[Rfam]
RNA sequence: ACAAAUUCGUUGAUGAGAAAAAGUAGUGUUUCAAUUUGUUCUACAGAGAGCCGGCAUGUUGGUGGAAGUCGGUGUACAGAUGUUACAUGAACUCCCCUCUGAGAAGGUUGGCUGAACAAUAAACAGUAAGCUGAUCCGGUGUCUUCCGUUAAAAAGAACACGUAUGAUUGUACGUUGCUGAGAGCUAUUGAAUGUUUUUCAAUAGAAUUAGGGUGGUAUUCGCGGUUAACCCCGUCCCUUUU
Numbered sequence: 001a002c003a004a005a006u007u008c009g010u011u012g013a014u015g016a017g018a019a020a021a022a023g024u025a026g027u028g029u030u031u032c033a034a035u036u037u038g039u040u041c042u043a044c045a046g047a048g049a050g051c052c053g054g055c056a057u058g059u060u061g062g063u064g065g066a067a068g069u070c071g072g073u074g075u076a077c078a079g080a081u082g083u084u085a086c087a088u089g090a091a092c093u094c095c096c097c098u099c100u101g102a103g104a105a106g107g108u109u110g111g112c113u114g115a116a117c118a119a120u121a122a123a124c125a126g127u128a129a130g131c132u133g134a135u136c137c138g139g140u141g142u143c144u145u146c147c148g149u150u151a152a153a154a155a156g157a158a159c160a161c162g163u164a165u166g167a168u169u170g171u172a173c174g175u176u177g178c179u180g181a182g183a184g185c186u187a188u189u190g191a192a193u194g195u196u197u198u199u200c201a202a203u204a205g206a207a208u209u210a211g212g213g214u215g216g217u218a219u220u221c222g223c224g225g226u227u228a229a230c231c232c233c234g235u236c237c238c239u240u241u242u
Stems, first nucleotide, its partner, number of pairs: 007104002015099003026088004039076001041074001050073006107135007137148003185205007210239004222235004
Dot-bracket structure: ......((......(((........((((.........(.(........((((((............))))))).)........))))........)))...))..(((((((...............))))))).(((......)))....................................(((((((.......)))))))....((((........((((......))))))))...